[Rfam]
RNA sequence: AGUCUAAUCAACUGUACGUCACUCUGGAUAAGAGCGUCUGCCAAAUGACAUUAA
Number, nucleotide and partner (000 for none) at each position: 001a000002g000003u000004c000005u000006a000007a000008u000009c000010a000011a000012c000013u043014g041015u040016a039017c000018g000019u000020c036021a000022c034023u033024c032025u031026g000027g000028a000029u000030a000031a025032g024033a023034g022035c000036g020037u000038c000039u016040g015041c014042c000043a013044a000045a000046u000047g000048a000049c000050a000051u000052u000053a000054a000
RNA: UnaL2 LINE 3' element
Organism: Conger conger